[Rfam]
RNA sequence: CCGGUGGGCCGCAACUGGCGCGUAGGGAUGGAAUCAACCAUCGGGAAGCGGCCCCGUGAAUCCUCACGUGAACUUGCCGAGCGCCUGGGCCCCCGCA
Dot-bracket structure: ..(..(((((((..(([[[[[......((((......))))..))..)))))))..)..................(((..]]]]]..))).......
Numbered sequence: 001c002c003g004g005u006g007g008g009c010c011g012c013a014a015c016u017g018g019c020g021c022g023u024a025g026g027g028a029u030g031g032a033a034u035c036a037a038c039c040a041u042c043g044g045g046a047a048g049c050g051g052c053c054c055c056g057u058g059a060a061u062c063c064u065c066a067c068g069u070g071a072a073c074u075u076g077c078c079g080a081g082c083g084c085c086u087g088g089g090c091c092c093c094c095g096c097a
Stems, first nucleotide, its partner, number of pairs: 003057001006054007015045002017085005028041004076090003
A member of the RNA family "ZMP/ZTP riboswitch aptamer (pfl RNA motif)", 97 nucleotides long. The family's consensus secondary structure is taken from published work.